Shown here is a 61-nucleotide RNA from Phascolarctos cinereus, a member of the family "Small nucleolar RNA SNORD75". Rfam links the family to the GO terms nucleolus and RNA processing. A search with the family's covariance model found it, with a score of 59 bits. The family's RNA type in Rfam is C/D-box small nucleolar RNA. Pairs were carried over by alignment from the consensus structure, which was predicted with RNAalifold.

[Rfam]
RNA sequence: AGCCUAUGAUGGUUUAAGAGUAGUGGACAGAAAUCAUUUCUGACAAUAACAGACUGAGGCU
Numbered sequence: 001a002g003c004c005u006a007u008g009a010u011g012g013u014u015u016a017a018g019a020g021u022a023g024u025g026g027a028c029a030g031a032a033a034u035c036a037u038u039u040c041u042g043a044c045a046a047u048a049a050c051a052g053a054c055u056g057a058g059g060c061u
Base pairs, nucleotide, nucleotide: 001061002060003059004058